[Rfam]
RNA sequence: GUUGCUUCGUUUGAUAAUAGGGUAGCUGGUUUCAAUCGUUGGUUACUCUUAAUGAGAAGCAUAGAAUUAUGGGAAUUUGCCAGUUCUAAACAGCAUGAUGUUGUUUAUCUAUUGCAUUGUGUUACCUGUCUGCUGGUAUAUUU
Numbered sequence: 001g002u003u004g005c006u007u008c009g010u011u012u013g014a015u016a017a018u019a020g021g022g023u024a025g026c027u028g029g030u031u032u033c034a035a036u037c038g039u040u041g042g043u044u045a046c047u048c049u050u051a052a053u054g055a056g057a058a059g060c061a062u063a064g065a066a067u068u069a070u071g072g073g074a075a076u077u078u079g080c081c082a083g084u085u086c087u088a089a090a091c092a093g094c095a096u097g098a099u100g101u102u103g104u105u106u107a108u109c110u111a112u113u114g115c116a117u118u119g120u121g122u123u124a125c126c127u128g129u130c131u132g133c134u135g136g137u138a139u140a141u142u143u
Base pairs, nucleotide, nucleotide: 003061004060005059006058007057008056018051019050020049021048022046023045024044025043026042079137080136081135082134083133084132092123093122094121096119097118098117099116100115
A member of the RNA family "small nucleolar RNA snoR137" from Gossypium mustelinum, 143 nucleotides long. Lineage of the source: Eukaryota > Spermatophyta > malvids > Malvales > Gossypium. A search with the family's covariance model found it, with a score of 58 bits. Rfam classes the family as an H/ACA-box small nucleolar RNA. On this family, see Chen and Wu, Nucleic Acids Res 2009: "Mining small RNA sequencing data: a new approach to identify small nucleolar RNAs in Arabidopsis". Rfam links the family to the GO terms RNA processing and nucleolus.